The record is a 74-nucleotide sequence from Nocardia panacis, which matches "tRNA" in Rfam. Rfam links the family to the GO term triplet codon-amino acid adaptor activity. Lineage of the source: Bacteria > Actinomycetota > Actinomycetes > Mycobacteriales > Nocardia. The base pairs follow the family's consensus structure, which is taken from published work.
[Rfam]
RNA sequence: UCCCUCGUAGCCCAACUGGCAGAGGCGCCGUACUCAGGAUGCGGUUGUUGCGAGUUCGAAUCUCGCCGAGGGAA
Numbered sequence: 001u002c003c004c005u006c007g008u009a010g011c012c013c014a015a016c017u018g019g020c021a022g023a024g025g026c027g028c029c030g031u032a033c034u035c036a037g038g039a040u041g042c043g044g045u046u047g048u049u050g051c052g053a054g055u056u057c058g059a060a061u062c063u064c065g066c067c068g069a070g071g072g073a074a
Stems, first nucleotide, its partner, number of pairs: 001073007010026003028044005050066005